[Rfam]
RNA sequence: CGAAAGUAUUUUACGAUUAAGAAGCAACUGUCUUUUGUAUAGAUCAUGGAUUAAUCG
Numbered sequence: 001c002g003a004a005a006g007u008a009u010u011u012u013a014c015g016a017u018u019a020a021g022a023a024g025c026a027a028c029u030g031u032c033u034u035u036u037g038u039a040u041a042g043a044u045c046a047u048g049g050a051u052u053a054a055u056c057g
Base pairs, nucleotide, nucleotide: 018037019036020035021034022033024031025030
RNA: Plastid-rps18 3UTR RNA